[Rfam]
RNA sequence: GCCGAUGAUGAUCCAAUCCAACGGUGAGGUGUAGUGGAUCUAAGGUCCCUGCUUUUGCAGGGGGAACCUCCUUAUUUUCACUACAUCAAUCAUGAUCACAACGGAUUUUACUGAGGC
Numbered sequence: 001g002c003c004g005a006u007g008a009u010g011a012u013c014c015a016a017u018c019c020a021a022c023g024g025u026g027a028g029g030u031g032u033a034g035u036g037g038a039u040c041u042a043a044g045g046u047c048c049c050u051g052c053u054u055u056u057g058c059a060g061g062g063g064g065a066a067c068c069u070c071c072u073u074a075u076u077u078u079c080a081c082u083a084c085a086u087c088a089a090u091c092a093u094g095a096u097c098a099c100a101a102c103g104g105a106u107u108u109u110a111c112u113g114a115g116g117c
Stems, first nucleotide, its partner, number of pairs: 001117003047062005